[Rfam]
RNA sequence: ACUUAGGCGAACUAGGGUUCCGGUCUGCAGGACGCAGAUGUCUGGUCCGAGAGUUUUCCGGCUUCCACGGAUCAGGAAGCUACACGGCGGGAUAAAAGCCCGGGAGAU
Numbered sequence: 001a002c003u004u005a006g007g008c009g010a011a012c013u014a015g016g017g018u019u020c021c022g023g024u025c026u027g028c029a030g031g032a033c034g035c036a037g038a039u040g041u042c043u044g045g046u047c048c049g050a051g052a053g054u055u056u057u058c059c060g061g062c063u064u065c066c067a068c069g070g071a072u073c074a075g076g077a078a079g080c081u082a083c084a085c086g087g088c089g090g091g092a093u094a095a096a097a098g099c100c101c102g103g104g105a106g107a108u
Base pairs, nucleotide, nucleotide: 007058009056010055011054012053015048016047020045021044022042023039024038025037026036027035028034060081061080062079063078064077065076066075083103085106089101090100091099
This 108-nucleotide sequence from Halopseudomonas xinjiangensis belongs to the Rfam family "Guanidine-I riboswitch aptamer". Taxonomically the source falls in Halopseudomonas (Bacteria, Gammaproteobacteria, Pseudomonadales, Pseudomonadaceae). On this family, see Barrick et al., Proc Natl Acad Sci U S A 2004: "New RNA motifs suggest an expanded scope for riboswitches in bacterial genetic control". The match comes from Rfam's covariance-model search (90 bits). This family represents a conserved RNA structure found upstream of the ykkC and yxkD genes in Bacillus subtilis and related genes in other bacteria.